[Rfam]
RNA: tRNA
RNA sequence: GAAGCUAUGGCGCAAUUGGUAGCGCGUCGGAUUCCAGACCCGAAGGCUGGGGGUUCGACUCCCUCUAGCUUCA
Numbered sequence: 001g002a003a004g005c006u007a008u009g010g011c012g013c014a015a016u017u018g019g020u021a022g023c024g025c026g027u028c029g030g031a032u033u034c035c036a037g038a039c040c041c042g043a044a045g046g047c048u049g050g051g052g053g054u055u056c057g058a059c060u061c062c063c064u065c066u067a068g069c070u071u072c073a
Stems, first nucleotide, its partner, number of pairs: 001072007010025004027043004049065005
Dot-bracket structure: (((((((..((((........)))).((((.........)))).....(((((.......)))))))))))).